[Rfam]
RNA sequence: CGGCCGGGACGACCCGGCCACAUCGGGGGCAAGCCGGGACGGCCCGG
Numbered sequence: 001c002g003g004c005c006g007g008g009a010c011g012a013c014c015c016g017g018c019c020a021c022a023u024c025g026g027g028g029g030c031a032a033g034c035c036g037g038g039a040c041g042g043c044c045c046g047g
Stems, first nucleotide, its partner, number of pairs: 002019007034047005

Background
Rfam assigns this 47-nucleotide RNA from Rhodoblastus acidophilus to the family "Guanidine-II riboswitch aptamer (mini-ykkC)". About the family: Simpler in structure and has fewer highly conserved nucleotide positions than the ykkC-yxkD leader. Despite this each of its two stem-loop structures directly bind free guanidine. Therefore, mini-ykkC RNA motif represents a distinct class of guanidine-sensing RNAs. Lineage of the source: Bacteria > Pseudomonadota > Alphaproteobacteria > Rhodoblastaceae > Rhodoblastus.